Shown here is a 135-nucleotide sequence from Sphingomonas sp. JC676, a member of the family "Manganese Mn2+ riboswitch aptamer (yybP-ykoY)".
RNA sequence: GCCUUCGUCAUCUGGGGAGUAGCCAGCCGUCCACCCAGGACGGGCCCGCGCGUCAACAUACUCGGUCGAGAGGCCGUGGUGCGCGGGGAGCGGAGUUUCCGUUCGGGCGAGACCAAUGGCGUCGCAUCUCCGCUC
Numbered sequence: 001g002c003c004u005u006c007g008u009c010a011u012c013u014g015g016g017g018a019g020u021a022g023c024c025a026g027c028c029g030u031c032c033a034c035c036c037a038g039g040a041c042g043g044g045c046c047c048g049c050g051c052g053u054c055a056a057c058a059u060a061c062u063c064g065g066u067c068g069a070g071a072g073g074c075c076g077u078g079g080u081g082c083g084c085g086g087g088g089a090g091c092g093g094a095g096u097u098u099c100c101g102u103u104c105g106g107g108c109g110a111g112a113c114c115a116a117u118g119g120c121g122u123c124g125c126a127u128c129u130c131c132g133c134u135c
Stems, first nucleotide, its partner, number of pairs: 027043003046086010063076005088135008
NCBI's taxonomy places the organism under Bacteria, Pseudomonadati, Pseudomonadota, Sphingomonadaceae, Sphingomonas. A search with the family's covariance model found it, with a score of 46 bits.